[Rfam]
RNA sequence: AAUGCAAUAAAAGAUUCAACUCAUAUAUCCCCAAAAUAUGGUUGGGAGUGUCUACCGGAAACCCUAAAUUUCUGACUAUGAGUGAUUAUUAAUAUAGC
Numbered sequence: 001a002a003u004g005c006a007a008u009a010a011a012a013g014a015u016u017c018a019a020c021u022c023a024u025a026u027a028u029c030c031c032c033a034a035a036a037u038a039u040g041g042u043u044g045g046g047a048g049u050g051u052c053u054a055c056c057g058g059a060a061a062c063c064c065u066a067a068a069u070u071u072c073u074g075a076c077u078a079u080g081a082g083u084g085a086u087u088a089u090u091a092a093u094a095u096a097g098c
Stems, first nucleotide, its partner, number of pairs: 019083007030046005056074006